[Rfam]
RNA sequence: UGUGUUCAGCCCGACCCCCCGGGGCUGAACACGACGGCCCUCGCCUCCUCCCCCCUGGCGAGGGUCGUCCCGU
Numbered sequence: 001u002g003u004g005u006u007c008a009g010c011c012c013g014a015c016c017c018c019c020c021g022g023g024g025c026u027g028a029a030c031a032c033g034a035c036g037g038c039c040c041u042c043g044c045c046u047c048c049u050c051c052c053c054c055c056u057g058g059c060g061a062g063g064g065u066c067g068u069c070c071c072g073u
Stems, first nucleotide, its partner, number of pairs: 002032003006028007033069013
The record is a 73-nucleotide RNA sequence from Rhodococcus sp. CX, which matches "6C RNA" in Rfam. Taxonomically the source falls in Rhodococcus (Bacteria, Actinomycetes, Mycobacteriales, Nocardiaceae). A reference for the family is Weinberg et al. (2007), "Identification of 22 candidate structured RNAs in bacteria using the CMfinder comparative genomics pipeline", Nucleic Acids Res. Pairs were carried over by alignment from the consensus structure, which is taken from published work. Gene Ontology term of the family: sporulation.